Rfam assigns this 308-nucleotide sequence from Sinomonas atrocyanea to the family "5' ureB small RNA". Rfam 15.1 lists 4,812 matches to the family in 4,480 species. Lineage of the source: Bacteria > Bacillati > Actinomycetes > Micrococcaceae > Sinomonas. Gene Ontology term of the family: negative regulation of gene expression. A reference for the family is Wen et al. (2013), "Helicobacter pylori 5'ureB-sRNA, a cis-encoded antisense small RNA, negatively regulates ureAB expression by transcription termination", J Bacteriol.
[Rfam]
RNA sequence: CGGUGGCGAACUGGUCGGGGCUGAUGAAGUGGAUGUGGGUGUCGAUGCCGCCGGCCGUGACGAUCCGGCCCUCGCCCGAGAUGACCUCGGUGCUGGGCCCGAUCACGAUCGUGACGCCGUCCAUGAUGUUCGGGUUGCCGGCCUUGCCGAUCGCGAGGAUGCGCCCGUCGCGCAGCCCGAGGUCCGCCUUGUAGAUCCCGGUGUAGUCGAGGACGACCACGCUCGUGAUCACCGUGUCCGCCACCGCGAGGUCUCCGGGCGCACCGUCGCGCACGGUGUUGCCGUCCUGGCCCAUGCCGUCGCGGAUG
Numbered sequence: 001c002g003g004u005g006g007c008g009a010a011c012u013g014g015u016c017g018g019g020g021c022u023g024a025u026g027a028a029g030u031g032g033a034u035g036u037g038g039g040u041g042u043c044g045a046u047g048c049c050g051c052c053g054g055c056c057g058u059g060a061c062g063a064u065c066c067g068g069c070c071c072u073c074g075c076c077c078g079a080g081a082u083g084a085c086c087u088c089g090g091u092g093c094u095g096g097g098c099c100c101g102a103u104c105a106c107g108a109u110c111g112u113g114a115c116g117c118c119g120u121c122c123a124u125g126a127u128g129u130u131c132g133g134g135u136u137g138c139c140g141g142c143c144u145u146g147c148c149g150a151u152c153g154c155g156a157g158g159a160u161g162c163g164c165c166c167g168u169c170g171c172g173c174a175g176c177c178c179g180a181g182g183u184c185c186g187c188c189u190u191g192u193a194g195a196u197c198c199c200g201g202u203g204u205a206g207u208c209g210a211g212g213a214c215g216a217c218c219a220c221g222c223u224c225g226u227g228a229u230c231a232c233c234g235u236g237u238c239c240g241c242c243a244c245c246g247c248g249a250g251g252u253c254u255c256c257g258g259g260c261g262c263a264c265c266g267u268c269g270c271g272c273a274c275g276g277u278g279u280u281g282c283c284g285u286c287c288u289g290g291c292c293c294a295u296g297c298c299g300u301c302g303c304g305g306a307u308g
Stems, first nucleotide, its partner, number of pairs: 001308002006303004011158002016153002018076002023071001030053003034050002037048001039046002057069002078147001081144001083142001085140001090138001092135003096130003104125002107121003111117001163291001165290003170285002172282005177276002185221002190216001201208001223273001224271002228267001230266001234264003
The match comes from Rfam's covariance-model search (76 bits).